RNA sequence: AUACUUGUGAUAACUGCACAGUUAUGCAGAUAGAAUUAAGAAACUAGAAAUCCUUUUUUUUCAGAUGUGUCA
Numbered sequence: 001a002u003a004c005u006u007g008u009g010a011u012a013a014c015u016g017c018a019c020a021g022u023u024a025u026g027c028a029g030a031u032a033g034a035a036u037u038a039a040g041a042a043a044c045u046a047g048a049a050a051u052c053c054u055u056u057u058u059u060u061u062c063a064g065a066u067g068u069g070u071c072a
Stems, first nucleotide, its partner, number of pairs: 001070004006039001008038004014029004046059005
The family of this 72-nucleotide RNA from Certhia brachydactyla is "Small nucleolar RNA SNORD77". Taxonomically the source falls in Certhia (Eukaryota, Euteleostomi, Neoaves, Australaves). By type it is a C/D-box small nucleolar RNA. Clan: SNORD77 clan. From the family's description: U77 belongs to the C/D family of snoRNAs. It is predicted to guide 2'O-ribose methylation of large 28S rRNA subunit at position A1521. The C/D snoRNAs U44, U47, U74, U75, U76, U78, U79, U80 and U81 share the same host gene as U77 (non-coding).